Rfam assigns this 90-nucleotide RNA sequence from Streptomyces sp. 136MFCol5.1 to the family "NLPC-P60 RNA". The family's RNA type in Rfam is cis-regulatory element. Lineage of the source: Bacteria > Bacillati > Actinomycetes > Kitasatosporales > Streptomyces. The family's consensus secondary structure is taken from published work.

[Rfam]
RNA sequence: GGGUUCUUGCAUCACCGGACACCCGGUGACCGUAUGGACCUGUCGCGCUCACUCAUGGGGUAGUCACGCGAUCGCCCCGUCAUCGGAGGU
Numbered sequence: 001g002g003g004u005u006c007u008u009g010c011a012u013c014a015c016c017g018g019a020c021a022c023c024c025g026g027u028g029a030c031c032g033u034a035u036g037g038a039c040c041u042g043u044c045g046c047g048c049u050c051a052c053u054c055a056u057g058g059g060g061u062a063g064u065c066a067c068g069c070g071a072u073c074g075c076c077c078c079g080u081c082a083u084c085g086g087a088g089g090u
Base pairs, nucleotide, nucleotide: 025053026052027051028050031047032046033045057078058077059076060075061074062072064071065070